[Rfam]
Nucleotides: 125
Stems, first nucleotide, its partner, number of pairs: 010112001012110005018104002021101013036072001037070003041066008
Number, partner (000 for none) and nucleotide at each position: 001000a002000c003000u004000g005000a006000u007000u008000c009000g010112u011000a012110c013109g014108g015107c016106g017000u018104g019103g020000c021101u022100u023099c024098a025097g026096c027095c028094c029093g030092a031091a032090g033089g034000c035000a036072u037070g038069c039068u040000u041066c042065c043064u044063g045062a046061c047060a048059c049000a050000c051000c052000u053000u054000c055000c056000c057000c058000g059048g060047u061046g062045u063044c064043a065042g066041g067000c068039a069038g070037c071000u072036a073000c074000c075000u076000u077000c078000c079000c080000a081000a082000a083000a084000g085000a086000u087000g088000u089033u090032c091031u092030u093029c094028g095027g096026g097025u098024u099023g100022a101021a102000a103019c104018c105000a106016c107015g108014c109013c110012g111000g112010a113000c114000g115000a116000a117000u118000g119000a120000a121000a122000c123000g124000u125000g

A member of the RNA family "mraW RNA" from Platysternon megacephalum, 125 nucleotides long. It is annotated as a cis-regulatory element. The match comes from Rfam's covariance-model search (52 bits).